[Rfam]
RNA sequence: GGAUCGAUGAUGACUCCACAAAUGCAUUCCUUGAAAGCUGAACAAAAUGAGUGAAAACUCUAUACCGUCUCAUCUCAUCCGAACCUGGAGGUCC
Numbered sequence: 001g002g003a004u005c006g007a008u009g010a011u012g013a014c015u016c017c018a019c020a021a022a023u024g025c026a027u028u029c030c031u032u033g034a035a036a037g038c039u040g041a042a043c044a045a046a047a048u049g050a051g052u053g054a055a056a057a058c059u060c061u062a063u064a065c066c067g068u069c070u071c072a073u074c075u076c077a078u079c080c081g082a083a084c085c086u087g088g089a090g091g092u093c094c
Base pairs, nucleotide, nucleotide: 001094002093003092004091005090025053026052027051028050029049031045032044033043
The record is a 94-nucleotide sequence from Microcebus murinus, which matches "Small nucleolar RNA SNORD116" in Rfam.
Gene Ontology terms of the family: RNA processing and nucleolus.
A reference for the family is Cavaille et al. (2000), "Identification of brain-specific and imprinted small nucleolar RNA genes exhibiting an unusual genomic organization", Proc Natl Acad Sci U S A.
NCBI's taxonomy places the organism under Eukaryota, Sarcopterygii, Theria, Boreoeutheria, Microcebus.
It is annotated as a C/D-box small nucleolar RNA.